[Rfam]
RNA: U12 minor spliceosomal RNA
Organism: Zootermopsis nevadensis
RNA sequence: GUGCCUUAAACUAAUGAGUAAGGAAAAUAUAGAGCCUUGGUGACGCUUGGUUCCAGCUAGGCGAUCUCUAGCACUAUAUAUUUUUGAAAGGGUACAGGUCGUCCUCUGAGUGGUUUGUCUACUUUUGCAAACUAUUCGAGUGACAGCGAUCUUCCCU
Numbered sequence: 001g002u003g004c005c006u007u008a009a010a011c012u013a014a015u016g017a018g019u020a021a022g023g024a025a026a027a028u029a030u031a032g033a034g035c036c037u038u039g040g041u042g043a044c045g046c047u048u049g050g051u052u053c054c055a056g057c058u059a060g061g062c063g064a065u066c067u068c069u070a071g072c073a074c075u076a077u078a079u080a081u082u083u084u085u086g087a088a089a090g091g092g093u094a095c096a097g098g099u100c101g102u103c104c105u106c107u108g109a110g111u112g113g114u115u116u117g118u119c120u121a122c123u124u125u126u127g128c129a130a131a132c133u134a135u136u137c138g139a140g141u142g143a144c145a146g147c148g149a150u151c152u153u154c155c156c157u
Base pairs, nucleotide, nucleotide: 004023005022006021007020008019032053033052034051035050036049039046056072057071058070059069060068089157090156091155092154096152097151098150099149100148101147102146105140108137109136110135111134112133114131115130116129117128118127